This 446-nucleotide part of an RNA from Allomyces macrogynus belongs to the Rfam family "Eukaryotic large subunit ribosomal RNA".
[Rfam]
RNA sequence: GGACCUCAAAUCAAGCAAGGUUACCCGCUGAACUUAAGCAUAUUAAUAAGCGGAGGAAAAGAAACUAACAAGGAUUCCCCGAGUAAUGGCGAAUGAAACGGGAAAAGCCCAAAUUUGAAAUCUCCUAGCUUUUAUCGCUAGGCGAGUUGUAAUUUGUAGAAGGUCUUCAUCUGAACUGUGUUUGCUAAAGUCCAUUGGAAAAUGGCGGGCCUUUAUGGUCCUCAAGUCGUAGAGGGUGACAACCCCGUUCUUGGCAUUCUACUAGUUCUUUUGUAUGAUUCCUUCAAAGAGUCGGAUUGUUUGGGAAUGCAAUCCAAAACGGGUGGUAAAUUCCAUCCAAGGCUAAAUAUUAGCAAGAGACCGAUAGCGAACAAGUACCGUGAGGGAAAGAUGAAAAGAACUCUGAAGAGAGAGUUCAACAGUACGUGAAAUUGCUGAAAGGGAAA
Dot-bracket structure: .......................((((((.....((....))......))))).).........((....))...((((......((.....)).....))))..((((..((((..((.((.((((((.......)))))).)).))..))))....((.((...((((..((((.(.(..((((...(.((((......))))).....................(...)..((.......)).......))))..)..)..))))......))))..)).))........(((((((........))))))).....(((((........)))))..)))).................................((....))...............((((....))))..................................

Lineage of the source: Eukaryota > Fungi > Blastocladiomycota > Allomyces > Allomyces macrogynus. Rfam's curators put it in the seed alignment. Gene Ontology terms of the family: structural constituent of ribosome and ribosome.